Notes: The family of this 53-nucleotide sequence from Alteromonas sp. KUL49 is "L31-Gammaproteobacteria ribosomal protein leader".
[Rfam]
RNA sequence: CGUAUGGUGUGCGACUUCGGGUUGUAUAGCGAUGCGGCCUUAUUAUGUGAGGU
Numbered sequence: 001c002g003u004a005u006g007g008u009g010u011g012c013g014a015c016u017u018c019g020g021g022u023u024g025u026a027u028a029g030c031g032a033u034g035c036g037g038c039c040u041u042a043u044u045a046u047g048u049g050a051g052g053u
Base pairs, nucleotide, nucleotide: 001036002035003034004033005032007030008029011025012024013023014022015021
Dot-bracket structure: (((((.((..(((((.....)))))...)).))))).................

The source organism's lineage runs through Bacteria, Pseudomonadota, Gammaproteobacteria, Alteromonadales and Alteromonas.